The record is an 84-nucleotide RNA from Anaeromicrobium sediminis, which matches "Clostridiales-2 RNA" in Rfam.

RNA sequence: AAAAGUAAGGGGGUGUAGGGGAAGAAUUCCCCUACCUCUUUAAAGGAAGGUGCUCAGGUUGCGAUAGCAAUCGUCGAAGGAAAC
Numbered sequence: 001a002a003a004a005g006u007a008a009g010g011g012g013g014u015g016u017a018g019g020g021g022a023a024g025a026a027u028u029c030c031c032c033u034a035c036c037u038c039u040u041u042a043a044a045g046g047a048a049g050g051u052g053c054u055c056a057g058g059u060u061g062c063g064a065u066a067g068c069a070a071u072c073g074u075c076g077a078a079g080g081a082a083a084c
Base pairs, nucleotide, nucleotide: 015035016034017033018032019031020030021029022028057072058071059070060069061068
Dot-bracket structure: ..............((((((((.....)))))))).....................(((((......)))))............

About this RNA:
Rfam classes the family as a small RNA. The source organism's lineage runs through Bacteria, Bacillati, Bacillota, Thermotaleaceae and Anaeromicrobium. It scores 76 bits against the family's covariance model. Rfam 15.1 lists 285 matches to the family in 26 species.